[Rfam]
RNA sequence: AGUUAUCAAAGAGGAUGCAACCAAUAUUAGUCAUAUAAGCUAGUCUGCCAAAGACAGUGAACUUAUGUAAAAGGAGCGGUUGCCGAAAUUUCAUUUAUGGCAUAAUGAAAUUGGGCUGACAAUUAAUAGUUGUUAGACUGUCACGGAAACGUGGUGCGCUUUGGAAAGU
Numbered sequence: 001a002g003u004u005a006u007c008a009a010a011g012a013g014g015a016u017g018c019a020a021c022c023a024a025u026a027u028u029a030g031u032c033a034u035a036u037a038a039g040c041u042a043g044u045c046u047g048c049c050a051a052a053g054a055c056a057g058u059g060a061a062c063u064u065a066u067g068u069a070a071a072a073g074g075a076g077c078g079g080u081u082g083c084c085g086a087a088a089u090u091u092c093a094u095u096u097a098u099g100g101c102a103u104a105a106u107g108a109a110a111u112u113g114g115g116c117u118g119a120c121a122a123u124u125a126a127u128a129g130u131u132g133u134u135a136g137a138c139u140g141u142c143a144c145g146g147a148a149a150c151g152u153g154g155u156g157c158g159c160u161u162u163g164g165a166a167a168g169u
Base pairs, nucleotide, nucleotide: 006164007163008162009161010160011159017083018082019081020080021079022078025075033068034067035066036065037064038063039062087112088111089110090109091108092107093106094105095104113139114138116136117135118134119133120132121131122130123129141154142153143152144151145150
RNA: Lysine riboswitch aptamer
Organism: Leuconostoc carnosum